[Rfam]
RNA sequence: UUUUAAGGAUCAAAGGCUAACUCCGCUGCUUCCUGCGGCAACGCCUUCGUGACCCGCUUCCCGCGGU
Numbered sequence: 001u002u003u004u005a006a007g008g009a010u011c012a013a014a015g016g017c018u019a020a021c022u023c024c025g026c027u028g029c030u031u032c033c034u035g036c037g038g039c040a041a042c043g044c045c046u047u048c049g050u051g052a053c054c055c056g057c058u059u060c061c062c063g064c065g066g067u
Stems, first nucleotide, its partner, number of pairs: 011049001013047005025039005054066004
RNA: Bacillaceae-1 RNA